[Rfam]
This 78-nucleotide RNA from Alligator mississippiensis belongs to the Rfam family "Mammalian CPEB3 ribozyme".
A search with the family's covariance model found it, with a score of 37 bits.
The source organism's lineage runs through Eukaryota, Craniata, Teleostomi, Sauropsida and Alligator.
Rfam's curators write: The mammalian CPEB3 ribozyme is a self cleaving RNA located in the second intron of the CPEB3 gene which belongs to a family of genes regulating messenger RNA polyadenylation. This ribozyme is highly conserved and found only in mammals. The CPEB3 ribozyme is structurally and biochemically related to the human hepatitis delta virus (HDV) ribozyme and the HDV ribozyme is proposed to have arisen from the human transcriptome. There is currently only one other known self cleaving ribozyme in mammals, the CoTC motif.
RNA sequence: AUGGAACAAGUUCAAGGCCACAGCAGAAGCACCCAUAACACAGCCCUAUCAGAUUCCAACAAAUCUGCAAAUUCUGCU
Numbered sequence: 001a002u003g004g005a006a007c008a009a010g011u012u013c014a015a016g017g018c019c020a021c022a023g024c025a026g027a028a029g030c031a032c033c034c035a036u037a038a039c040a041c042a043g044c045c046c047u048a049u050c051a052g053a054u055u056c057c058a059a060c061a062a063a064u065c066u067g068c069a070a071a072u073u074c075u076g077c078u
Base pairs, nucleotide, nucleotide: 016045017044018043022078023077024076025075026074027073028072029041050067051066052065053064054063055062